[Rfam]
RNA sequence: AUACUUUUGAGUGACAUUCAUCAAUUGUCUCUUCAUUUUCACAACUGAAGGAUAAAGUAAAGAAGGCAAGAUAUCGUUUCAGUCAUCAUUAUUUCGAUUGAUGAUCUGAUUGUUGCUUGUCCACAA
Numbered sequence: 001a002u003a004c005u006u007u008u009g010a011g012u013g014a015c016a017u018u019c020a021u022c023a024a025u026u027g028u029c030u031c032u033u034c035a036u037u038u039u040c041a042c043a044a045c046u047g048a049a050g051g052a053u054a055a056a057g058u059a060a061a062g063a064a065g066g067c068a069a070g071a072u073a074u075c076g077u078u079u080c081a082g083u084c085a086u087c088a089u090u091a092u093u094u095c096g097a098u099u100g101a102u103g104a105u106c107u108g109a110u111u112g113u114u115g116c117u118u119g120u121c122c123a124c125a126a
Base pairs, nucleotide, nucleotide: 008035009034011031013029014028015027016026065122066121067119068118069117070116073110074109075108076107082105083104084103085102086101087100088099089097090096
Small nucleolar RNA snoR111: a 126-nucleotide RNA from Lactuca sativa. Its family is annotated with nucleolus and RNA processing in the Gene Ontology. The match comes from Rfam's covariance-model search (69 bits). Lineage of the source: Eukaryota > Euphyllophyta > asterids > Cichorioideae > Lactuca.